The record is a 136-nucleotide RNA sequence from Thalictrum thalictroides, which matches "Small nucleolar RNA snoR77" in Rfam.
RNA sequence: AGGCAGCCUCUUUGUGAAAGAUAAAUUCACAUCGGUGGUUUUAAUCUGCUUGUUAUUUUUUCCUGCUCAGCAGAUUUACUGAGGUUGGGUACCAAAAUCCAAUCUCUGAAGCUGGUCUAGUAAGCUCAAGCACAUU
Numbered sequence: 001a002g003g004c005a006g007c008c009u010c011u012u013u014g015u016g017a018a019a020g021a022u023a024a025a026u027u028c029a030c031a032u033c034g035g036u037g038g039u040u041u042u043a044a045u046c047u048g049c050u051u052g053u054u055a056u057u058u059u060u061u062c063c064u065g066c067u068c069a070g071c072a073g074a075u076u077u078a079c080u081g082a083g084g085u086u087g088g089g090u091a092c093c094a095a096a097a098u099c100c101a102a103u104c105u106c107u108g109a110a111g112c113u114g115g116u117c118u119a120g121u122a123a124g125c126u127c128a129a130g131c132a133c134a135u136u
Base pairs, nucleotide, nucleotide: 002042003041005039007038008037009035010034013031014030015029016028017027060130061129065125066124067123072118073117074116075115076114079111080110083104084103085102086101087100088099089098090097
By type it is an H/ACA-box small nucleolar RNA. NCBI's taxonomy places the organism under Eukaryota, Viridiplantae, Embryophyta, Mesangiospermae, Thalictrum. Its family is annotated with nucleolus and RNA processing in the Gene Ontology. A search with the family's covariance model found it, with a score of 71 bits. The literature on the family includes a 2002 paper in Curr Biol by Marker et al., "Experimental RNomics: identification of 140 candidates for small non-messenger RNAs in the plant Arabidopsis thaliana".